[Rfam]
RNA sequence: CAUCGCGAUGCUCUUCAGAGAUGGAGAAAUCGUGAUGAGGAUACUUUCAAAGCCCCAACUGAAGGAGUUGGUUUUGUACUCGCCGCAACAUGUCGCACGUCUGGAAAAGGCAGGCCUAUUCCCCAAGCGGGUACAGCUGGGCCCGAACAGAGUGGGAUGGGUCGAAGAUGAAGUGCUGGACUGGCUACAAACACGGAUGGAGGGUCGCGAGGAGGCCUGACCGACACUCCUCAUGUAGGAGUAUGGGUGGCCGGAGGUGCACACUUC
Numbered sequence: 001c002a003u004c005g006c007g008a009u010g011c012u013c014u015u016c017a018g019a020g021a022u023g024g025a026g027a028a029a030u031c032g033u034g035a036u037g038a039g040g041a042u043a044c045u046u047u048c049a050a051a052g053c054c055c056c057a058a059c060u061g062a063a064g065g066a067g068u069u070g071g072u073u074u075u076g077u078a079c080u081c082g083c084c085g086c087a088a089c090a091u092g093u094c095g096c097a098c099g100u101c102u103g104g105a106a107a108a109g110g111c112a113g114g115c116c117u118a119u120u121c122c123c124c125a126a127g128c129g130g131g132u133a134c135a136g137c138u139g140g141g142c143c144c145g146a147a148c149a150g151a152g153u154g155g156g157a158u159g160g161g162u163c164g165a166a167g168a169u170g171a172a173g174u175g176c177u178g179g180a181c182u183g184g185c186u187a188c189a190a191a192c193a194c195g196g197a198u199g200g201a202g203g204g205u206c207g208c209g210a211g212g213a214g215g216c217c218u219g220a221c222c223g224a225c226a227c228u229c230c231u232c233a234u235g236u237a238g239g240a241g242u243a244u245g246g247g248u249g250g251c252c253g254g255a256g257g258u259g260c261a262c263a264c265u266u267c
Base pairs, nucleotide, nucleotide: 001037002036003035004034005033006032007031008030009029012027013026014025015024016023017022055200056199057198059196060195064188066186067185068184069183070182071181072180073179074178077175078174079173080172081170082169083167086164088162089161091159092158093157094156096154097153098152101150102149103148109143110142111141113138114137115136121131122130123129203252204251205250206249207248208247221246222245223244227241228240229239230238231237254266255265256264
Annotation: Rfam assigns this 267-nucleotide sequence from Octadecabacter antarcticus to the family "Ruegeria trans44 sRNA". The family has 2 seed sequences and 33 matches in Rfam 15.1. A reference for the family is Rivers et al. (2016), "Experimental Identification of Small Non-Coding RNAs in the Model Marine Bacterium Ruegeria pomeroyi DSS-3", Front Microbiol. The organism belongs to Octadecabacter antarcticus, within Bacteria. Pairs were carried over by alignment from the consensus structure, which was predicted with RNAfold.